[Rfam]
RNA sequence: UGGCGGAUCCAUUUUGGGUUGUACCUCAUCCUAAAUUUGACGGUACCCGUAAUGUUUCCGCUGAG
Numbered sequence: 001u002g003g004c005g006g007a008u009c010c011a012u013u014u015u016g017g018g019u020u021g022u023a024c025c026u027c028a029u030c031c032u033a034a035a036u037u038u039g040a041c042g043g044u045a046c047c048c049g050u051a052a053u054g055u056u057u058c059c060g061c062u063g064a065g
Stems, first nucleotide, its partner, number of pairs: 002062006010054004015049005023044003026040003
Dot-bracket structure: .((((((..((((.(((((...((((((.........))).)))))))).))))..))))))...